Rfam assigns this 131-nucleotide sequence from Erinaceus europaeus to the family "U11 spliceosomal RNA".
Rfam links the family to the GO terms mRNA 5'-splice site recognition, U11 snRNP and pre-mRNA 5'-splice site binding.
It scores 74 bits against the family's covariance model.

RNA sequence: GAAAGGGGCUCAUGUCGUGAGUGACACGUAGGGCAGCGUGUUUGCUCCAAGUGCGGAAUCGACGUCAGGAGAUUUCGGAAGCAUAAUUUUUGUUGUUUGGGCAGCUGGUGAUCUUUGAUCCCAGCAGAAAA
Numbered sequence: 001g002a003a004a005g006g007g008g009c010u011c012a013u014g015u016c017g018u019g020a021g022u023g024a025c026a027c028g029u030a031g032g033g034c035a036g037c038g039u040g041u042u043u044g045c046u047c048c049a050a051g052u053g054c055g056g057a058a059u060c061g062a063c064g065u066c067a068g069g070a071g072a073u074u075u076c077g078g079a080a081g082c083a084u085a086a087u088u089u090u091u092g093u094u095g096u097u098u099g100g101g102c103a104g105c106u107g108g109u110g111a112u113c114u115u116u117g118a119u120c121c122c123a124g125c126a127g128a129a130a131a
Stems, first nucleotide, its partner, number of pairs: 008082003013026005027053003031047006054077007102127001104125005110120004
Dot-bracket structure: .......(((..(((((....)))))(((.((((((.....))))))...)))(((((((..........)))))))..)))...................(.(((((.((((...))))))))).)....